[Rfam]
Notes
MIR8565 microRNA precursor family: a 154-nucleotide RNA from Amborella trichopoda.
RNA sequence: CCCACACCCAUGUGUGUAGGACUCCAAAGGAUCACCAUUAAAUUUAGCACAGACAUCUAGAAAAGUUAUCACAUGGGGGUAAGACUUGACUUUUCUAGAGAUCUGUACUAAAUUUAAAGGUGAUCCUUUGGGAUCCUACACACAUGGGUUUGGG
Numbered sequence: 001c002c003c004a005c006a007c008c009c010a011u012g013u014g015u016g017u018a019g020g021a022c023u024c025c026a027a028a029g030g031a032u033c034a035c036c037a038u039u040a041a042a043u044u045u046a047g048c049a050c051a052g053a054c055a056u057c058u059a060g061a062a063a064a065g066u067u068a069u070c071a072c073a074u075g076g077g078g079g080u081a082a083g084a085c086u087u088g089a090c091u092u093u094u095c096u097a098g099a100g101a102u103c104u105g106u107a108c109u110a111a112a113u114u115u116a117a118a119g120g121u122g123a124u125c126c127u128u129u130g131g132g133a134u135c136c137u138a139c140a141c142a143c144a145u146g147g148g149u150u151u152g153g154g
Stems, first nucleotide, its partner, number of pairs: 002153003006149008015140007023132006030125003034121003038117010049106005056099013069082001071080002

Background:
Its family is annotated with miRNA-mediated post-transcriptional gene silencing and RISC complex in the Gene Ontology.